[Rfam]
RNA sequence: UCCAGCGGUAGUCAGCUCUCCAGUGCUUUCCAUGCCUGUGAUAGUGUUACACUGCUGGGAGAUAAAGGCACUACUACUUCACGCUGAAGUCCAUUGUUACUGUUCUGGUGACCUGUGGAACUUCAGCUUCUAGUAGUGUUGUGAUUCCUUGAGAGUGCGUCUUACAAGCUUUACUUGUUUGGUGCUAGUUUGGGACUUGUACAGU
Numbered sequence: 001u002c003c004a005g006c007g008g009u010a011g012u013c014a015g016c017u018c019u020c021c022a023g024u025g026c027u028u029u030c031c032a033u034g035c036c037u038g039u040g041a042u043a044g045u046g047u048u049a050c051a052c053u054g055c056u057g058g059g060a061g062a063u064a065a066a067g068g069c070a071c072u073a074c075u076a077c078u079u080c081a082c083g084c085u086g087a088a089g090u091c092c093a094u095u096g097u098u099a100c101u102g103u104u105c106u107g108g109u110g111a112c113c114u115g116u117g118g119a120a121c122u123u124c125a126g127c128u129u130c131u132a133g134u135a136g137u138g139u140u141g142u143g144a145u146u147c148c149u150u151g152a153g154a155g156u157g158c159g160u161c162u163u164a165c166a167a168g169c170u171u172u173a174c175u176u177g178u179u180u181g182g183u184g185c186u187a188g189u190u191u192g193g194g195a196c197u198u199g200u201a202c203a204g205u
Stems, first nucleotide, its partner, number of pairs: 001059009011050002015045003019041002021038003025035002068139009083127005090119005096113001097111005141200004145195004157185003161181001164178004

Shown here is a 205-nucleotide RNA from Aquarana catesbeiana, a member of the family "Small nucleolar RNA SNORA74". Gene Ontology terms of the family: RNA processing and nucleolus. The source organism's lineage runs through Eukaryota, Deuterostomia, Craniata, Anura and Aquarana. The family is grouped with related families in Rfam's "SNORA74 clan". The literature on the family includes a 1997 paper in Genes Dev by Ganot et al., "The family of box ACA small nucleolar RNAs is defined by an evolutionarily conserved secondary structure and ubiquitous sequence elements essential for RNA accumulation". The family's RNA type in Rfam is H/ACA-box small nucleolar RNA.